RNA: Group II catalytic intron D1-D4-3
Organism: Algoriphagus aquimarinus
RNA sequence: UUUACCGCGAGUUAUACACUGAAGUAAGCCAGACUGCGGUGUCUGUACUGACAGCCUGUCCCGCAAGGCGGGAAACAGAAACUACAUACAGAGGCUAUUAGGUCGGAUGAGGUAACACAUGCUGCCGAAGUCCAAAGCUCCGUUUGAUUCAUCAAGUGGAGAGCGUACCGAAAUAGUAGAUGUAGCAGAGAUACAUACAAGGAUAUUCAU
Numbered sequence: 001u002u003u004a005c006c007g008c009g010a011g012u013u014a015u016a017c018a019c020u021g022a023a024g025u026a027a028g029c030c031a032g033a034c035u036g037c038g039g040u041g042u043c044u045g046u047a048c049u050g051a052c053a054g055c056c057u058g059u060c061c062c063g064c065a066a067g068g069c070g071g072g073a074a075a076c077a078g079a080a081a082c083u084a085c086a087u088a089c090a091g092a093g094g095c096u097a098u099u100a101g102g103u104c105g106g107a108u109g110a111g112g113u114a115a116c117a118c119a120u121g122c123u124g125c126c127g128a129a130g131u132c133c134a135a136a137g138c139u140c141c142g143u144u145u146g147a148u149u150c151a152u153c154a155a156g157u158g159g160a161g162a163g164c165g166u167a168c169c170g171a172a173a174u175a176g177u178a179g180a181u182g183u184a185g186c187a188g189a190g191a192u193a194c195a196u197a198c199a200a201g202g203a204u205a206u207u208c209a210u
Base pairs, nucleotide, nucleotide: 001016003014004013006011028210031207032206035203040197041196042195044193045192046190048188049187050186082185083184084183085182086181087180094177095176096175098172099171101169102168103167105133106132107131108130111126112125113124114123
Dot-bracket structure: (.((.(....).)).)...........(..((..(....(((.(((.(((...............................((((((......(((.((.(((.((((..((((........))))...)))).................................))).))..)))..))))))))).).)).))).....)..))..)